[Rfam]
RNA sequence: GGGGAGGGCUCUGAACAGGGGGCCUGAAGAAUGGCUCUUCUGUUUAUAACACACCCAAUGGGAGUCUGGGGACAUUGUGAUAAUGGGCACAAAACUUGUGGCCUCUCUACAAACAAACUCCCUACAUGU
Numbered sequence: 001g002g003g004g005a006g007g008g009c010u011c012u013g014a015a016c017a018g019g020g021g022g023c024c025u026g027a028a029g030a031a032u033g034g035c036u037c038u039u040c041u042g043u044u045u046a047u048a049a050c051a052c053a054c055c056c057a058a059u060g061g062g063a064g065u066c067u068g069g070g071g072a073c074a075u076u077g078u079g080a081u082a083a084u085g086g087g088c089a090c091a092a093a094a095c096u097u098g099u100g101g102c103c104u105c106u107c108u109a110c111a112a113a114c115a116a117a118c119u120c121c122c123u124a125c126a127u128g129u
Base pairs, nucleotide, nucleotide: 002056003055004054006052008050013045014044015043016042017041018040019039020038021037022035023034024033069122070121071120072119076115077114078113081111085103086102088100089099090098091097092096

The record is a 129-nucleotide RNA from Otolemur garnettii, which matches "Small nucleolar RNA SNORA11" in Rfam. The family has 35 seed sequences and 2,014 matches in Rfam 15.1. It scores 126 bits against the family's covariance model. Pairs were carried over by alignment from the consensus structure, which was predicted with RNAalifold. About the family: U107 (SNORA11) is a member of the H/ACA class of snoRNAs that guide the sites of modification of uridines to pseudouridines. The organism belongs to Otolemur, within Eukaryota.